[Rfam]
RNA: ilvH RNA
RNA sequence: AACAAAUCUAUUGCUCGCCAGGUCCGCGCAUUACCGUGUGUGGAUGAGGGCGGCGACAGUGCAAGCU
Dot-bracket structure: ..........(((.(((((...(((((((((....)))))))))....))))))))...........